Shown here is a 104-nucleotide sequence from Vulpes vulpes, a member of the family "mir-8834 microRNA precursor family". The match comes from Rfam's covariance-model search (82 bits). Taxonomically the source falls in Vulpes (Eukaryota, Eumetazoa, Euteleostomi, Sarcopterygii). Gene Ontology terms of the family: miRNA-mediated post-transcriptional gene silencing and RISC complex.
RNA sequence: AGGAGGAACAACCCCAGUGGCGGGCCAGCUCUGGAAUCCUCCAGUCAGCCCCUGCAGGAACUCCGGAGCUCUCUGCCUGCAGGGCAUGGAGUCUCCGGGGCAGG
Numbered sequence: 001a002g003g004a005g006g007a008a009c010a011a012c013c014c015c016a017g018u019g020g021c022g023g024g025c026c027a028g029c030u031c032u033g034g035a036a037u038c039c040u041c042c043a044g045u046c047a048g049c050c051c052c053u054g055c056a057g058g059a060a061c062u063c064c065g066g067a068g069c070u071c072u073c074u075g076c077c078u079g080c081a082g083g084g085c086a087u088g089g090a091g092u093c094u095c096c097g098g099g100g101c102a103g104g
Stems, first nucleotide, its partner, number of pairs: 002096005009088002012084003019077003022073003027070009038058003